A member of the RNA family "Lysine riboswitch aptamer" from Sinanaerobacter chloroacetimidivorans, 166 nucleotides long. The literature on the family includes a 2003 paper in Cell by Mandal et al., "Riboswitches Control Fundamental Biochemical Pathways in Bacillus subtilis and Other Bacteria".

RNA sequence: AAUGUUGAUAGAGGCAGCGAAGCAAAUGAAGAUAUGGAUGGCCGGCGGGCAAUGAUCCAUAUUGGAGGUAUCCUUCGCCGAACCCUUCUUUUAGGCAUAAAAGUCGGGUGGGCUCAUGGUGAAUAACCAUGUGACUGUCUACGUAAGUAGGCGUGCUAUCCUUUGA
Numbered sequence: 001a002a003u004g005u006u007g008a009u010a011g012a013g014g015c016a017g018c019g020a021a022g023c024a025a026a027u028g029a030a031g032a033u034a035u036g037g038a039u040g041g042c043c044g045g046c047g048g049g050c051a052a053u054g055a056u057c058c059a060u061a062u063u064g065g066a067g068g069u070a071u072c073c074u075u076c077g078c079c080g081a082a083c084c085c086u087u088c089u090u091u092u093a094g095g096c097a098u099a100a101a102a103g104u105c106g107g108g109u110g111g112g113c114u115c116a117u118g119g120u121g122a123a124u125a126a127c128c129a130u131g132u133g134a135c136u137g138u139c140u141a142c143g144u145a146a147g148u149a150g151g152c153g154u155g156c157u158a159u160c161c162u163u164u165g166a
Base pairs, nucleotide, nucleotide: 007160008159009158010157011156017078018077019076020075021074022073024071031063032062033061034060035059036058037057038056082109083108084107085106088103089102090101091100092099093098110136111135113133115131116130117129118128119127120126138151139150140149141148142147
Rfam's curators write: Riboswitches are metabolite binding domains within certain messenger RNAs that serve as precision sensors for their corresponding targets. Allosteric rearrangement of mRNA structure is mediated by ligand binding, and this results in modulation of gene expression. This family includes riboswitches that sense lysine in a number of genes involved in lysine metabolism, including lysC. Pairs were carried over by alignment from the consensus structure, which is taken from published work.